Rfam assigns this 114-nucleotide RNA from Bisgaardia hudsonensis to the family "Aggregatibacter sRNA 54". The match comes from Rfam's covariance-model search (94 bits).
RNA sequence: GCGUAACAUUCGCCACAGUUUAUUAGUAAGAGGACAUACACUUUGGACAGUCACAGUCGAUACCGAUCGUCUUUAAUCUAAAUCUCGUCAUUUUACUUAUCGGCGGGAUUUCGC
Numbered sequence: 001g002c003g004u005a006a007c008a009u010u011c012g013c014c015a016c017a018g019u020u021u022a023u024u025a026g027u028a029a030g031a032g033g034a035c036a037u038a039c040a041c042u043u044u045g046g047a048c049a050g051u052c053a054c055a056g057u058c059g060a061u062a063c064c065g066a067u068c069g070u071c072u073u074u075a076a077u078c079u080a081a082a083u084c085u086c087g088u089c090a091u092u093u094u095a096c097u098u099a100u101c102g103g104c105g106g107g108a109u110u111u112c113g114c
Stems, first nucleotide, its partner, number of pairs: 001013003005010001026079001028077001030074006043066004050061003080111010
The family's RNA type in Rfam is small RNA. Rfam's curators write: Validated by RT-PCR, expression up-regulated during growth.